[Rfam]
RNA sequence: ACGGACAAGGAUGUCCGUGGUUCUAGGCAGAAGCGAGUUUGCAGUGCAAACUCGUCGUUAAGCAGUUGUACACGGACGUACAACUGCUUAACAGGC
Numbered sequence: 001a002c003g004g005a006c007a008a009g010g011a012u013g014u015c016c017g018u019g020g021u022u023c024u025a026g027g028c029a030g031a032a033g034c035g036a037g038u039u040u041g042c043a044g045u046g047c048a049a050a051c052u053c054g055u056c057g058u059u060a061a062g063c064a065g066u067u068g069u070a071c072a073c074g075g076a077c078g079u080a081c082a083a084c085u086g087c088u089u090a091a092c093a094g095g096c
Stems, first nucleotide, its partner, number of pairs: 001018006034054009057092010068081004
The record is a 96-nucleotide RNA sequence from Treponema vincentii, which matches "TD-2 RNA" in Rfam. Clan: TD (Treponema denticola) motifs. By type it is a small RNA. On this family, see Weinberg et al., Nucleic Acids Res 2007: "Identification of 22 candidate structured RNAs in bacteria using the CMfinder comparative genomics pipeline".